[Rfam]
RNA sequence: CGUCCCCUGGCAGUGUAGUUAGCUGGUUGUGUGCUUAUCAAUCACGGCCACUAUCUCCACUUCCACUGGACG
Numbered sequence: 001c002g003u004c005c006c007c008u009g010g011c012a013g014u015g016u017a018g019u020u021a022g023c024u025g026g027u028u029g030u031g032u033g034c035u036u037a038u039c040a041a042u043c044a045c046g047g048c049c050a051c052u053a054u055c056u057c058c059a060c061u062u063c064c065a066c067u068g069g070a071c072g
Base pairs, nucleotide, nucleotide: 002071003070004069005068009064010063012061013060014059015058017056018055020053021052022051024050025049026048027047028046029045030044031043
RNA: mir-34 microRNA precursor family